[Rfam]
RNA sequence: GAGAACUGAUAAUCUGACAGGUGGAAUGAUGAAGUAACGCUCUGAAACGCCUGCCCUGAGCCUCCGACAAGCAUUGUAUGAGGAAACUCAGAAUGUUUGAAGCUCGGUAAAGACGGCUGAAAGAUACCGUAAUAGUUGAUGAACAUAUAUCUUCUAUCGAAAACUAUCCAGAGGUGGGUAGCGUAUCCAACAGGUCGGGGGUCUAUAAA
Numbered sequence: 001g002a003g004a005a006c007u008g009a010u011a012a013u014c015u016g017a018c019a020g021g022u023g024g025a026a027u028g029a030u031g032a033a034g035u036a037a038c039g040c041u042c043u044g045a046a047a048c049g050c051c052u053g054c055c056c057u058g059a060g061c062c063u064c065c066g067a068c069a070a071g072c073a074u075u076g077u078a079u080g081a082g083g084a085a086a087c088u089c090a091g092a093a094u095g096u097u098u099g100a101a102g103c104u105c106g107g108u109a110a111a112g113a114c115g116g117c118u119g120a121a122a123g124a125u126a127c128c129g130u131a132a133u134a135g136u137u138g139a140u141g142a143a144c145a146u147a148u149a150u151c152u153u154c155u156a157u158c159g160a161a162a163a164c165u166a167u168c169c170a171g172a173g174g175u176g177g178g179u180a181g182c183g184u185a186u187c188c189a190a191c192a193g194g195u196c197g198g199g200g201g202u203c204u205a206u207a208a209a
Stems, first nucleotide, its partner, number of pairs: 018053006031043001033041002054201004064107004068099008077090001080089003114197005123187005128159002134155002164181007

Shown here is a 209-nucleotide RNA sequence from Enterococcus faecium, a member of the family "Group II catalytic intron D1-D4-5". Rfam describes the family as follows. Group II introns are found in rRNA, tRNA and mRNA of organelles in fungi, plants and protists, and also in mRNA in bacteria. A reference for the family is Lehmann and Schmidt (2003), "Group II introns: structure and catalytic versatility of large natural ribozymes", Crit Rev Biochem Mol Biol. Rfam's curators put it in the seed alignment.